[Rfam]
RNA sequence: AAAUAAUCUUGCAACUGGCGGAAAUGGAAUUAACCAUAGGGAGCAGGAUUUUAGAAAAGUAUCGACCGUCUGGGUAAAUUAA
Numbered sequence: 001a002a003a004u005a006a007u008c009u010u011g012c013a014a015c016u017g018g019c020g021g022a023a024a025u026g027g028a029a030u031u032a033a034c035c036a037u038a039g040g041g042a043g044c045a046g047g048a049u050u051u052u053a054g055a056a057a058a059g060u061a062u063c064g065a066c067c068g069u070c071u072g073g074g075u076a077a078a079u080u081a082a
Stems, first nucleotide, its partner, number of pairs: 003052001005050008015040002017070005024037004060076004
Shown here is an 82-nucleotide RNA sequence from Clostridium cellulovorans, a member of the family "ZMP/ZTP riboswitch aptamer (pfl RNA motif)". Its family is annotated with one-carbon metabolic process and regulation of purine nucleotide biosynthetic process in the Gene Ontology. Lineage of the source: Bacteria > Bacillota > Eubacteriales > Clostridium > Clostridium cellulovorans.